[Rfam]
RNA: DUF805b RNA
RNA sequence: UAGGUGGAAUCCGAAAAGCCUUCAACAGAGUAGGAA
Numbered sequence: 001u002a003g004g005u006g007g008a009a010u011c012c013g014a015a016a017a018g019c020c021u022u023c024a025a026c027a028g029a030g031u032a033g034g035a036a
Stems, first nucleotide, its partner, number of pairs: 002021004010035003